[Rfam]
RNA: Acido-Lenti-1 RNA
Nucleotides: 046
Base pairs, nucleotide, nucleotide: 001020002019003018004017005016006015007014008013033045034044035043036042037041
Number, partner (000 for none) and nucleotide at each position: 001020c002019c003018g004017g005016g006015u007014g008013c009000u010000g011000a012000c013008g014007c015006a016005c017004c018003c019002g020001g021000c022000a023000a024000a025000g026000g027000g028000c029000u030000u031000c032000c033045g034044u035043c036042c037041c038000u039000u040000u041037g042036g043035g044034a045033c046000u